Shown here is a 105-nucleotide RNA from Salinarimonas soli, a member of the family "EcpR1".
The family's RNA type in Rfam is small RNA.
A search with the family's covariance model found it, with a score of 73 bits.
Perviously named SmelC291, SmrC10, or Sra33. According to its overproduction phenotype it was renamed Elongated Cell Phenotype RNA1. Induced by stress,EcpR1 negatively regulates cell cycle master regulatory genes dnaA and gcrA at post-transcriptional level by base pairing between its strongly conserved GC-rich loop and the target mRNAs. It's regulation is hfq-independent but requires RNase E to regulate dnaA.
The source organism's lineage runs through Bacteria, Pseudomonadati, Pseudomonadota, Alphaproteobacteria and Salinarimonas.
The literature on the family includes a 2010 paper in BMC Genomics by Schluter et al., "A genome-wide survey of sRNAs in the symbiotic nitrogen-fixing alpha-proteobacterium Sinorhizobium meliloti".
RNA sequence: AUGCCCACCGAUGCUCAGGUCCGCCGCAUCUCCUGGGUUUCGUGGGCUCGGCCGGUCCGGGCGUGGAGCAUGGCCUCCUCAUACCCACGCCCGACCGGCCACCUC
Numbered sequence: 001a002u003g004c005c006c007a008c009c010g011a012u013g014c015u016c017a018g019g020u021c022c023g024c025c026g027c028a029u030c031u032c033c034u035g036g037g038u039u040u041c042g043u044g045g046g047c048u049c050g051g052c053c054g055g056u057c058c059g060g061g062c063g064u065g066g067a068g069c070a071u072g073g074c075c076u077c078c079u080c081a082u083a084c085c086c087a088c089g090c091c092c093g094a095c096c097g098g099c100c101a102c103c104u105c
Base pairs, nucleotide, nucleotide: 003047004046005045006044007043008042010040014037015036016035017034018033019032050100051099052098053097054096055095056094057093059091060090